[Rfam]
RNA sequence: CCACGACUUCAAUGUGGACGUGCUUGCUUUGGCUGACAAUAGUAAGUGCUUCCAUGUUUUAGUGGUGG
Numbered sequence: 001c002c003a004c005g006a007c008u009u010c011a012a013u014g015u016g017g018a019c020g021u022g023c024u025u026g027c028u029u030u031g032g033c034u035g036a037c038a039a040u041a042g043u044a045a046g047u048g049c050u051u052c053c054a055u056g057u058u059u060u061a062g063u064g065g066u067g068g
Stems, first nucleotide, its partner, number of pairs: 001068003006063003011058008020049009

Annotation: This 68-nucleotide RNA from Sinosuthora webbiana belongs to the Rfam family "mir-302 microRNA precursor family". It scores 62 bits against the family's covariance model. The base pairs follow the family's consensus structure, which was predicted with RNAalifold. NCBI's taxonomy places the organism under Eukaryota, Bilateria, Vertebrata, Dinosauria, Sinosuthora. A reference for the family is Suh et al. (2004), "Human embryonic stem cells express a unique set of microRNAs", Dev Biol.